[Rfam]
RNA sequence: CGAGUCGUGGCGGGAGAGUCCUGCAAGCGUGAGCGAACAGGCGCCGUAGGAGCAACACCUCCCCGGGAAUCUCUCAGGCACCCGUACCGCCCCGACGAG
Numbered sequence: 001c002g003a004g005u006c007g008u009g010g011c012g013g014g015a016g017a018g019u020c021c022u023g024c025a026a027g028c029g030u031g032a033g034c035g036a037a038c039a040g041g042c043g044c045c046g047u048a049g050g051a052g053c054a055a056c057a058c059c060u061c062c063c064c065g066g067g068a069a070u071c072u073c074u075c076a077g078g079c080a081c082c083c084g085u086a087c088c089g090c091c092c093c094g095a096c097g098a099g
Stems, first nucleotide, its partner, number of pairs: 006094002009091005020041004043079003046075001050073003056066001
Glycine riboswitch aptamer: a 99-nucleotide RNA sequence from Raineyella fluvialis. A search with the family's covariance model found it, with a score of 61 bits.